The family of this 439-nucleotide part of an RNA from Paraglaciecola hydrolytica is "Bacterial large subunit ribosomal RNA". The base pairs follow the family's consensus structure, which is taken from published work. The source organism's lineage runs through Bacteria, Pseudomonadati, Gammaproteobacteria, Alteromonadales and Paraglaciecola.

Nucleotides: 439
Stems, first nucleotide, its partner, number of pairs: 001379006011024005026130001027128006036121001040115006051104001052102002057098003061094004068087002070084005134159010164175003179351004184347003190341003199338001201337006218312002222309005229302003239296005245269003250264003270274001275290001279288002352369007380434001382431005390424003399418008
Number, partner (000 for none) and nucleotide at each position: 001379c002378u003377c004376c005375c006374c007000g008000a009000a010000a011024g012023c013022u014021a015020u016000u017000u018000a019000g020015g021014u022013a023012g024011c025000g026130c027128c028127u029126c030125g031124g032123a033000c034000g035000a036121a037000u038000a039000c040115c041114a042113c043112a044111g045110g046000g047000g048000g049000u050000a051104g052102a053101g054000c055000a056000c057098u058097g059096u060000u061094a062093a063092g064091g065000c066000u067000a068087g069086g070084g071083g072082g073081u074080c075000a076000u077000c078000c079000c080074g081073a082072c083071u084070u085000a086069c087068c088000a089000a090000c091064c092063c093062u094061u095000u096059g097058c098057a099000a100000a101053c102052u103000c104051c105000g106000a107000a108000u109000a110045c111044c112043u113042g114041u115040g116000a117000g118000u119000a120000c121036u122000a123032u124031c125030c126029g127028g128027g129000a130026g131000a132000c133000a134159c135158a136157c137156g138155g139154c140153g141152g142151g143150u144000g145000c146000u147000a148000a149000c150143g151142u152141c153140c154139g155138u156137c157136g158135u159134g160000a161000a162000g163000a164175g165174g166173g167000a168000a169000a170000c171000a172000a173166c174165c175164c176000a177000g178000a179351c180350c181349g182348c183000c184347a185346g186345c187000u188000a189000a190341g191340g192339u193000c194000c195000c196000a197000a198000a199338g200000u201337c202336a203335u204334a205333g206332u207000u208000a209000a210000g211000u212000g213000g214000g215000a216000a217000a218312c219311g220000a221000u222309g223308u224307g225306g226305g227000a228000a229302g230301g231300c232000u233000a234000a235000g236000a237000c238000a239296g240295c241294u242293a243292g244000g245269a246268g247267g248000u249000u250264g251263g252262c253000u254000u255000a256000g257000a258000a259000g260000c261000a262252g263251c264250c265000a266000c267247c268246c269245u270274u271000u272000a273000a274270a275290g276000a277000a278000a279288g280287c281000g282000u283000a284000a285000u286000a287280g288279c289000u290275c291000a292243c293242u294241a295240g296239u297000c298000g299000a300231g301230u302229c303000g304000g305226c306225c307224u308223g309222c310000g311219c312218g313000g314000a315000a316000g317000a318000u319000g320000u321000a322000a323000c324000g325000g326000g327000g328000c329000u330000a331000a332206a333205c334204u335203a336202u337201g338199c339192a340191c341190c342000g343000a344000a345186g346185c347184u348182g349181c350180g351179g352369a353368u354367u355366c356365a357364u358363c359000u360000u361000a362000g363358g364357a365356u366355g367354a368353g369352u370000g371000g372000u373000a374006g375005g376004g377003g378002a379001g380434c381000g382431u383430u384429g385428u386427g387000u388000a389000a390424g391423u392422g393000g394000c395000u396000g397000a398000a399418g400417g401416u402415g403414a404413a405412c406411c407000g408000a409000g410000a411406g412405g413404u414403u415402u416401g417400c418399u419000g420000g421000a422392c423391a424390u425000a426000u427386c428385a429384c430383a431382a432000g433000u434380g435000c436000g437000a438000a439000u